DUF3800-IX RNA: a 65-nucleotide RNA. The family's RNA type in Rfam is small RNA. The base pairs follow the family's consensus structure, which is taken from published work. Rfam's curators put it in the seed alignment. Rfam's curators write: Actinobacteria, Firmicutes (1 example), Nitrospirae, Proteobacteria, Verrucomicrobia (1 example).

[Rfam]
RNA sequence: GCCCCUCGACCGAAAUGUUGCCUGAAUGGUAUGCGUGCCCGUAAGGGAUAGGGAGAGGGGAGUUA
Numbered sequence: 001g002c003c004c005c006u007c008g009a010c011c012g013a014a015a016u017g018u019u020g021c022c023u024g025a026a027u028g029g030u031a032u033g034c035g036u037g038c039c040c041g042u043a044a045g046g047g048a049u050a051g052g053g054a055g056a057g058g059g060g061a062g063u064u065a
Stems, first nucleotide, its partner, number of pairs: 002060006010052002016035003019031004038047003
Dot-bracket structure: .((((((..((....(((((((.....)))).)))..(((....)))...))..)))))).....